The family of this 96-nucleotide RNA sequence from Crossiella cryophila is "Glycine riboswitch aptamer". A search with the family's covariance model found it, with a score of 41 bits. The organism belongs to Crossiella, within Bacteria.
RNA sequence: GCGACUCUGGAAAGCAGGUGGGUUCGCCCACCUCACCCACGGUGCAACCCGCGUCCGCGCGGCGAAGCUCUCAGGUCCCAUGACAGAGCGGGGAGG
Number, nucleotide and partner (000 for none) at each position: 001g000002c091003g000004a000005c088006u087007c086008u085009g084010g000011a000012a000013a000014g000015c000016a033017g032018g031019u030020g000021g000022g000023u000024u000025c000026g000027c000028c000029c000030a019031c018032c017033u016034c000035a076036c075037c074038c000039a071040c000041g000042g070043u000044g068045c000046a000047a000048c000049c062050c061051g060052c000053g000054u000055c000056c000057g000058c000059g000060c051061g050062g049063c000064g000065a000066a000067g000068c044069u000070c042071u039072c000073a000074g037075g036076u035077c000078c000079c000080a000081u000082g000083a000084c009085a008086g007087a006088g005089c000090g000091g002092g000093g000094a000095g000096g000